Shown here is a 123-nucleotide RNA from Lactococcus lactis, a member of the family "L17 ribosomal protein downstream element". The family's RNA type in Rfam is cis-regulatory element.
RNA sequence: UGAGUGUUAUGAUGUUGGCGGGGGUUUCUGUGGGUGCAUGUGUUGAGUUGUGAUUGACUCUCUUUCGCAUCAGCCUUGCUUAUAGUCUAGCUCUGUCUGAUUAGAUUAAAUUUCUAAUCUAGU
Numbered sequence: 001u002g003a004g005u006g007u008u009a010u011g012a013u014g015u016u017g018g019c020g021g022g023g024g025u026u027u028c029u030g031u032g033g034g035u036g037c038a039u040g041u042g043u044u045g046a047g048u049u050g051u052g053a054u055u056g057a058c059u060c061u062c063u064u065u066c067g068c069a070u071c072a073g074c075c076u077u078g079c080u081u082a083u084a085g086u087c088u089a090g091c092u093c094u095g096u097c098u099g100a101u102u103a104g105a106u107u108a109a110a111u112u113u114c115u116a117a118u119c120u121a122g123u
Stems, first nucleotide, its partner, number of pairs: 002093004011087003017080006100123009